[Rfam]
Rfam assigns this 505-nucleotide sequence from Yinghuangia soli to the family "Saccharopolyspora sRNA 350".
On this family, see Liu et al., PLoS One 2013: "Prediction and characterization of small non-coding RNAs related to secondary metabolites in Saccharopolyspora erythraea".

RNA sequence: GUUGCGGUAUAUGCCCAGCGGGCGUCCUCCUCGACCAGCGACUCGUCGCCGAAGUGGUCGCCGUCGGCCAGCACGCCGACCACCGUCUGGUCGCCGUACUUGCCGUCGCCCAACUUGUUGAUCUUGCCGUGCGCCACCAGGUAGAUCUCGUCCGCGCCCCGCCCGGCCUCGGUGAUCACCUCGCCCGGCGCGAACUCGCGCUGCGUGAACCGGUCCGCGAUCGCGGCCAGCAUGGCGUCGUCCUCGAAGCCGCGCAGCAGCGGGAGUUCGCGCAGCGUGGGCGGGACGACCUGCACCCGGUCGGCGGUCUGCGCGAAGCUCACCCGGCCGCGCCCCACCGAGUAGGUGAGCCGCCGGUUGACCCGGUACGUGCCGCCCGCGACGUUGACCCAGGGCAGCAUCCGCAGCAGCCAGCGCGAGCUGAUGCCCUGCAUCUGCGGCGCGGACUUGGUCGUGGUCGCAAGGUUCCGCGCGGCCGCUGUGCCAAGGCUCUGCUGGUUGCCGG
Numbered sequence: 001g002u003u004g005c006g007g008u009a010u011a012u013g014c015c016c017a018g019c020g021g022g023c024g025u026c027c028u029c030c031u032c033g034a035c036c037a038g039c040g041a042c043u044c045g046u047c048g049c050c051g052a053a054g055u056g057g058u059c060g061c062c063g064u065c066g067g068c069c070a071g072c073a074c075g076c077c078g079a080c081c082a083c084c085g086u087c088u089g090g091u092c093g094c095c096g097u098a099c100u101u102g103c104c105g106u107c108g109c110c111c112a113a114c115u116u117g118u119u120g121a122u123c124u125u126g127c128c129g130u131g132c133g134c135c136a137c138c139a140g141g142u143a144g145a146u147c148u149c150g151u152c153c154g155c156g157c158c159c160c161g162c163c164c165g166g167c168c169u170c171g172g173u174g175a176u177c178a179c180c181u182c183g184c185c186c187g188g189c190g191c192g193a194a195c196u197c198g199c200g201c202u203g204c205g206u207g208a209a210c211c212g213g214u215c216c217g218c219g220a221u222c223g224c225g226g227c228c229a230g231c232a233u234g235g236c237g238u239c240g241u242c243c244u245c246g247a248a249g250c251c252g253c254g255c256a257g258c259a260g261c262g263g264g265a266g267u268u269c270g271c272g273c274a275g276c277g278u279g280g281g282c283g284g285g286a287c288g289a290c291c292u293g294c295a296c297c298c299g300g301u302c303g304g305c306g307g308u309c310u311g312c313g314c315g316a317a318g319c320u321c322a323c324c325c326g327g328c329c330g331c332g333c334c335c336c337a338c339c340g341a342g343u344a345g346g347u348g349a350g351c352c353g354c355c356g357g358u359u360g361a362c363c364c365g366g367u368a369c370g371u372g373c374c375g376c377c378c379g380c381g382a383c384g385u386u387g388a389c390c391c392a393g394g395g396c397a398g399c400a401u402c403c404g405c406a407g408c409a410g411c412c413a414g415c416g417c418g419a420g421c422u423g424a425u426g427c428c429c430u431g432c433a434u435c436u437g438c439g440g441c442g443c444g445g446a447c448u449u450g451g452u453c454g455u456g457g458u459c460g461c462a463a464g465g466u467u468c469c470g471c472g473c474g475g476c477c478g479c480u481g482u483g484c485c486a487a488g489g490c491u492c493u494g495c496u497g498g499u500u501g502c503c504g505g
Stems, first nucleotide, its partner, number of pairs: 006390003011385002015381001018328002021325002025322001029318001031316002035313001038310001040308001042306001045305004049300003054233002058229001060227005066110003075103001077102003082097002085094002117222001119220001122217001127212001129210002131206004140197001143196002149192002154189002160183001166173002235294002240290003244286002251281001253279002257276002260271003329342001331340002351379001353377001355375003361371002391431007399423002403418003407415001437476002440473001442471005447465003451461002477504002481502002485498001487496002
Rfam links the family to the GO term regulation of secondary metabolite biosynthetic process.
It is annotated as an antisense RNA.